[Rfam]
RNA sequence: AUCGUUCAUCUUAUUUUAUUAAAUAGGACGGAAGUAGGAAGAUAGGAAAACCUCUUUCUUUUUUAAAGAAAGGCUAGCAAGUACCGCUUGGGUUAAUUUAUCUUAGGCGGGAACGAGACCGAAUAUCUGCCGAAGGAACGCGUU
Numbered sequence: 001a002u003c004g005u006u007c008a009u010c011u012u013a014u015u016u017u018a019u020u021a022a023a024u025a026g027g028a029c030g031g032a033a034g035u036a037g038g039a040a041g042a043u044a045g046g047a048a049a050a051c052c053u054c055u056u057u058c059u060u061u062u063u064u065a066a067a068g069a070a071a072g073g074c075u076a077g078c079a080a081g082u083a084c085c086g087c088u089u090g091g092g093u094u095a096a097u098u099u100a101u102c103u104u105a106g107g108c109g110g111g112a113a114c115g116a117g118a119c120c121g122a123a124u125a126u127c128u129g130c131c132g133a134a135g136g137a138a139c140g141c142g143u144u
Stems, first nucleotide, its partner, number of pairs: 003140005009028008031141001037131002
RNA: Glutamine riboswitch aptamer (glnA leader)